RNA: ASpks TB sRNA
RNA sequence: UUUCACCGAACCGAGCCACAGCGGCCGUUCCGGCUCCCGUCCCUGACCGUAGGUGGCCAGAAGGGCCUGCGCCUC
Numbered sequence: 001u002u003u004c005a006c007c008g009a010a011c012c013g014a015g016c017c018a019c020a021g022c023g024g025c026c027g028u029u030c031c032g033g034c035u036c037c038c039g040u041c042c043c044u045g046a047c048c049g050u051a052g053g054u055g056g057c058c059a060g061a062a063g064g065g066c067c068u069g070c071g072c073c074u075c
Stems, first nucleotide, its partner, number of pairs: 015025003031071002038065001043060003047056003